DUF3800-IX RNA: a 61-nucleotide RNA.
The family's consensus secondary structure is taken from published work.
Actinobacteria, Firmicutes (1 example), Nitrospirae, Proteobacteria, Verrucomicrobia (1 example).
RNA sequence: AGGUAAUAUGUGAACUGUCUCCGUAUGGUGGCUUGCCCUUCGGCUAGUAUAUUACCUUGGA
Numbered sequence: 001a002g003g004u005a006a007u008a009u010g011u012g013a014a015c016u017g018u019c020u021c022c023g024u025a026u027g028g029u030g031g032c033u034u035g036c037c038c039u040u041c042g043g044c045u046a047g048u049a050u051a052u053u054a055c056c057u058u059g060g061a
Base pairs, nucleotide, nucleotide: 001057002056003055004054005053006052007051008050009049010048011047017032018031019030021028022027035044036043037042